Rfam assigns this 93-nucleotide RNA from Desulfotomaculum copahuensis to the family "Selenocysteine transfer RNA". Rfam links the family to the GO term triplet codon-amino acid adaptor activity.

[Rfam]
RNA sequence: GGGGAGUACGGGGCUGGUGCCCCCCGCGGGCUGCAAACCCGGCGGCCGGCCUGCAGAACAGGCUGGAGUCCGGUUCGAUUCCGACUACUCCCC
Dot-bracket structure: ((((((((.(((((....))))).((((((.......)))).)).(((((...........)))))..(.(((.......)))).))))))))
A search with the family's covariance model found it, with a score of 53 bits.